A member of the RNA family "Group II catalytic intron D1-D4-2" from Mesotoga sp. SC_3PWM13N19, 120 nucleotides long. Its family is annotated with Group II intron splicing in the Gene Ontology. It scores 115 bits against the family's covariance model. About the family: Group II introns are found in rRNA, tRNA and mRNA of organelles in fungi, plants and protists, and also in mRNA in bacteria.
[Rfam]
RNA sequence: GAGGGAGGGCCCCUCGAAGCCGCCAUGCAGGUGGAGGCUUCAAACCACCGUAAGCUGCUGUGGUAAAGAGCCAUGGUAGUGAACGUUACGGGAAAAGGCGGGACGGCGAUUCCGUCAGGU
Numbered sequence: 001g002a003g004g005g006a007g008g009g010c011c012c013c014u015c016g017a018a019g020c021c022g023c024c025a026u027g028c029a030g031g032u033g034g035a036g037g038c039u040u041c042a043a044a045c046c047a048c049c050g051u052a053a054g055c056u057g058c059u060g061u062g063g064u065a066a067a068g069a070g071c072c073a074u075g076g077u078a079g080u081g082a083a084c085g086u087u088a089c090g091g092g093a094a095a096a097g098g099c100g101g102g103a104c105g106g107c108g109a110u111u112c113c114g115u116c117a118g119g120u
Stems, first nucleotide, its partner, number of pairs: 001015005016041006023034004046119001048091006054080002057077003061073004097116006